[Rfam]
RNA sequence: ACCUGUUGCGAGCGGACGCGUAGGCGCUGCUCGCGAUACCAGAACACACACCGUGCCCCGGGAAGAACGAGGCACUUCAGGGCGUU
Numbered sequence: 001a002c003c004u005g006u007u008g009c010g011a012g013c014g015g016a017c018g019c020g021u022a023g024g025c026g027c028u029g030c031u032c033g034c035g036a037u038a039c040c041a042g043a044a045c046a047c048a049c050a051c052c053g054u055g056c057c058c059c060g061g062g063a064a065g066a067a068c069g070a071g072g073c074a075c076u077u078c079a080g081g082g083c084g085u086u
Stems, first nucleotide, its partner, number of pairs: 004038011053075005059069002
RNA: nrdJ RNA